This 234-nucleotide RNA from a Kiloniellaceae bacterium belongs to the Rfam family "permuted transfer-messenger RNA". On this family, see Felden et al., RNA 1997: "Probing the structure of the Escherichia coli 10Sa RNA (tmRNA)". The family's RNA type in Rfam is non-coding RNA gene. About the family: Bacterial tmRNA, also known as 10Sa RNA or SsrA, is named for its dual tRNA and mRNA-like properties. Its role is to liberate the mRNA from a stalled ribosome. The match comes from Rfam's covariance-model search (141 bits). The source organism's lineage runs through Bacteria, Pseudomonadota, Alphaproteobacteria, Rhodospirillales and Kiloniellaceae.
RNA sequence: GGUGCUAAACGGGCCUGUGAAAUAAGCGUGACGGACCCGGGGGCAGUACCCGGCGCCUCCACCAAUCCCUCUCCACAUCGUCGGAAUCUGGCUUUGCGGAGGGACCUUAUGGGGGCGAAAUAGGAUCGACGUGCGUGGUAAAGAUGGGUUCGGUGCCCGGCAUGGUACCGCCGUUAUCGGGCCGAAACUAUAGUUGCGAACGACAACUACAGUGAGGCUCGCCUCGCCGCUUAA
Numbered sequence: 001g002g003u004g005c006u007a008a009a010c011g012g013g014c015c016u017g018u019g020a021a022a023u024a025a026g027c028g029u030g031a032c033g034g035a036c037c038c039g040g041g042g043g044c045a046g047u048a049c050c051c052g053g054c055g056c057c058u059c060c061a062c063c064a065a066u067c068c069c070u071c072u073c074c075a076c077a078u079c080g081u082c083g084g085a086a087u088c089u090g091g092c093u094u095u096g097c098g099g100a101g102g103g104a105c106c107u108u109a110u111g112g113g114g115g116c117g118a119a120a121u122a123g124g125a126u127c128g129a130c131g132u133g134c135g136u137g138g139u140a141a142a143g144a145u146g147g148g149u150u151c152g153g154u155g156c157c158c159g160g161c162a163u164g165g166u167a168c169c170g171c172c173g174u175u176a177u178c179g180g181g182c183c184g185a186a187a188c189u190a191u192a193g194u195u196g197c198g199a200a201c202g203a204c205a206a207c208u209a210c211a212g213u214g215a216g217g218c219u220c221g222c223c224u225c226g227c228c229g230c231u232u233a234a
Base pairs, nucleotide, nucleotide: 001157002156003155004154005153015147016146017145018144027135028134029133031132032131033130037053038052039051040050041049054117055116056115057114058113059112060111158173159172160171161170
Dot-bracket structure: (((((.........((((........(((.(((...(((((.......)))))(((((((..................................................)))))))............))))))........)))).....)))))((((........)))).............................................................